[Rfam]
A member of the RNA family "Acido-Lenti-1 RNA" from Candidatus Electrothrix aarhusensis, 46 nucleotides long.

RNA sequence: CCCACCGUUAAAACAGUGGGCUAUUUGCUGCCGUCCCUCCGGGACU
Numbered sequence: 001c002c003c004a005c006c007g008u009u010a011a012a013a014c015a016g017u018g019g020g021c022u023a024u025u026u027g028c029u030g031c032c033g034u035c036c037c038u039c040c041g042g043g044a045c046u
Stems, first nucleotide, its partner, number of pairs: 001020005007014002033045005
The family has 87 seed sequences and 2,607 matches in Rfam 15.1.
The family's consensus secondary structure is taken from published work.
The match comes from Rfam's covariance-model search (42 bits).